Shown here is an 84-nucleotide RNA from Cerasibacillus quisquiliarum, a member of the family "Group II catalytic intron D1-D4-1". Rfam describes the family as follows. Group II introns are found in rRNA, tRNA and mRNA of organelles in fungi, plants and protists, and also in mRNA in bacteria. It scores 71 bits against the family's covariance model. A reference for the family is Bonen and Vogel (2001), "The ins and outs of group II introns", Trends Genet.
RNA sequence: CAACCUACUUCAUGAGGAGUAGCUGAACCAUCAGAAGUCAGCAGAGGUCAUAGUACAAACCGGUCUAGAACGAUUUGGAAGGAC
Numbered sequence: 001c002a003a004c005c006u007a008c009u010u011c012a013u014g015a016g017g018a019g020u021a022g023c024u025g026a027a028c029c030a031u032c033a034g035a036a037g038u039c040a041g042c043a044g045a046g047g048u049c050a051u052a053g054u055a056c057a058a059a060c061c062g063g064u065c066u067a068g069a070a071c072g073a074u075u076u077g078g079a080a081g082g083a084c
Base pairs, nucleotide, nucleotide: 001025002024005022006021007020008019009018010017011016038045039044047084048083049082056077057076058075059074061072